[Rfam]
Background:
The family of this 171-nucleotide RNA sequence from Romboutsia weinsteinii is "Lysine riboswitch aptamer". The family has 47 seed sequences and 3,224 matches in Rfam 15.1. Lineage of the source: Bacteria > Bacillota > Clostridia > Peptostreptococcales > Romboutsia.
RNA sequence: GCCUAAAGUAGAGGCGCCGUAAUUAAUAGUAAAUAGUUGGAGCUGGCAAGCAUAGAUUACUAUAGAAAGGAGUUAUGGCCGAAGAUUUUAUCUUUGCAAAAGUAUUAUCUGGGAUUACACAUAAUAUGUGUAAUACUGUCACUUAUUUUUAAGUGGUGUGCUACAGGGUUU
Numbered sequence: 001g002c003c004u005a006a007a008g009u010a011g012a013g014g015c016g017c018c019g020u021a022a023u024u025a026a027u028a029g030u031a032a033a034u035a036g037u038u039g040g041a042g043c044u045g046g047c048a049a050g051c052a053u054a055g056a057u058u059a060c061u062a063u064a065g066a067a068a069g070g071a072g073u074u075a076u077g078g079c080c081g082a083a084g085a086u087u088u089u090a091u092c093u094u095u096g097c098a099a100a101a102g103u104a105u106u107a108u109c110u111g112g113g114a115u116u117a118c119a120c121a122u123a124a125u126a127u128g129u130g131u132a133a134u135a136c137u138g139u140c141a142c143u144u145a146u147u148u149u150u151a152a153g154u155g156g157u158g159u160g161c162u163a164c165a166g167g168g169u170u171u
Stems, first nucleotide, its partner, number of pairs: 008164004016079009033063005039057001083110004089104003093100002111137002114134008139156007